[Rfam]
RNA sequence: UAACAUUUCAAAAUGUUUUUGGUGGCGGGUAUGGGCUUCCAUAAAUGUUGAAUGGCUAUAAAUUCUAGUGGAAACCUAAAAGCACAGCUUUUUACUUCUCACACAAGCUUAAGUAGCUAAGAAUUUUCGUGGCGUUCCUUUAUGUCAUUUCUAUGACAGAU
Numbered sequence: 001u002a003a004c005a006u007u008u009c010a011a012a013a014u015g016u017u018u019u020u021g022g023u024g025g026c027g028g029g030u031a032u033g034g035g036c037u038u039c040c041a042u043a044a045a046u047g048u049u050g051a052a053u054g055g056c057u058a059u060a061a062a063u064u065c066u067a068g069u070g071g072a073a074a075c076c077u078a079a080a081a082g083c084a085c086a087g088c089u090u091u092u093u094a095c096u097u098c099u100c101a102c103a104c105a106a107g108c109u110u111a112a113g114u115a116g117c118u119a120a121g122a123a124u125u126u127u128c129g130u131g132g133c134g135u136u137c138c139u140u141u142a143u144g145u146c147a148u149u150u151c152u153a154u155g156a157c158a159g160a161u
Stems, first nucleotide, its partner, number of pairs: 004054003009047002017044002020041003024037003058161002063156002066153003079141004084136001087133002091129001
Dot-bracket structure: ...(((..((......((.(((.(((........))).))).)).))....)))...((...((.(((..........((((.(..((..(.....................................)..))..).)))).........))).))...))
A member of the RNA family "Small nucleolar RNA SNORA14" from Salmo trutta, 161 nucleotides long. Gene Ontology terms of the family: RNA processing and nucleolus. It scores 36 bits against the family's covariance model. NCBI's taxonomy places the organism under Eukaryota, Bilateria, Teleostei, Salmoninae, Salmo. The family's RNA type in Rfam is H/ACA-box small nucleolar RNA.